Rfam assigns this 202-nucleotide RNA to the family "raiA RNA".
RNA sequence: AGUAUUUAGGUCUGUGGUUGCAAGUCCAAGCCAGUCGCGGGCAAAAGGAUCCACGUAAGCUACUCCUAAAAAUUGGAGAGUGAGCAUGGCGCGGCUUAGAGGUAAGUCCUGCCGAGAAAAUCGAGAGGAUUAGUAGUGCGGUAACCCCAAAGCGAAAGUUCCAGCAGGCGAGUGUGGGGGUAAAAACCAGGUCAGGCGUGUU
Numbered sequence: 001a002g003u004a005u006u007u008a009g010g011u012c013u014g015u016g017g018u019u020g021c022a023a024g025u026c027c028a029a030g031c032c033a034g035u036c037g038c039g040g041g042c043a044a045a046a047g048g049a050u051c052c053a054c055g056u057a058a059g060c061u062a063c064u065c066c067u068a069a070a071a072a073u074u075g076g077a078g079a080g081u082g083a084g085c086a087u088g089g090c091g092c093g094g095c096u097u098a099g100a101g102g103u104a105a106g107u108c109c110u111g112c113c114g115a116g117a118a119a120a121u122c123g124a125g126a127g128g129a130u131u132a133g134u135a136g137u138g139c140g141g142u143a144a145c146c147c148c149a150a151a152g153c154g155a156a157a158g159u160u161c162c163a164g165c166a167g168g169c170g171a172g173u174g175u176g177g178g179g180g181u182a183a184a185a186a187c188c189a190g191g192u193c194a195g196g197c198g199u200g201u202u
Base pairs, nucleotide, nucleotide: 001202002201003200004199005198006196012195013194014193015189016188017187018186019185028175030173031041033096034095035094036093037092038091039090050089051088058081064076087182108168109167110166111165112164113123114122115121127161128160129159130158136153137152140146141145